Shown here is a 137-nucleotide RNA from Aneurinibacillus soli, a member of the family "Ribosomal protein L10 leader". Its family is annotated with regulation of gene expression in the Gene Ontology. NCBI's taxonomy places the organism under Bacteria, Bacillota, Caryophanales, Paenibacillaceae, Aneurinibacillus. It is annotated as a cis-regulatory leader.
RNA sequence: UAAAUGAAUAUGCCGUUACCGUAGACAGGAGGCGUCUUCUCCAGAAGACUUAAUAUCCUUCCGAGGUGCUGUACGAUAUACGUUUUGAAUGUAUUCUGAAGCCUUCGCAUGUCUGCGUGGGCUUUUUUCAUUAUAAA
Numbered sequence: 001u002a003a004a005u006g007a008a009u010a011u012g013c014c015g016u017u018a019c020c021g022u023a024g025a026c027a028g029g030a031g032g033c034g035u036c037u038u039c040u041c042c043a044g045a046a047g048a049c050u051u052a053a054u055a056u057c058c059u060u061c062c063g064a065g066g067u068g069c070u071g072u073a074c075g076a077u078a079u080a081c082g083u084u085u086u087g088a089a090u091g092u093a094u095u096c097u098g099a100a101g102c103c104u105u106c107g108c109a110u111g112u113c114u115g116c117g118u119g120g121g122c123u124u125u126u127u128u129c130a131u132u133a134u135a136a137a
Base pairs, nucleotide, nucleotide: 028061029060030059031058032057034049035048036047037046038045039044101122102121103120104119106117107116108115109114